The family of this 144-nucleotide sequence from Manihot esculenta is "MIR390 microRNA precursor family".
RNA sequence: UGGGAGACUCUGUAAAGCUCAGGAGGGAUAGCGCCAUAAGCAAUGAUAAUGGUUAUUGAUUUUUGGGUUAAUCUCAAAAAAAAAAAAAAAAAAAAAAAAAAUCAUUAAUGGCGCUAUCUAUCCUGAGUUUCACAGGUUCUUCUU
Numbered sequence: 001u002g003g004g005a006g007a008c009u010c011u012g013u014a015a016a017g018c019u020c021a022g023g024a025g026g027g028a029u030a031g032c033g034c035c036a037u038a039a040g041c042a043a044u045g046a047u048a049a050u051g052g053u054u055a056u057u058g059a060u061u062u063u064u065g066g067g068u069u070a071a072u073c074u075c076a077a078a079a080a081a082a083a084a085a086a087a088a089a090a091a092a093a094a095a096a097a098a099a100a101a102u103c104a105u106u107a108a109u110g111g112c113g114c115u116a117u118c119u120a121u122c123c124u125g126a127g128u129u130u131c132a133c134a135g136g137u138u139c140u141u142c143u144u
Stems, first nucleotide, its partner, number of pairs: 010135001016129009026119012
Rfam links the family to the GO terms RISC complex and miRNA-mediated post-transcriptional gene silencing. The match comes from Rfam's covariance-model search (102 bits). Lineage of the source: Eukaryota > Streptophytina > Euphyllophyta > fabids > Manihot.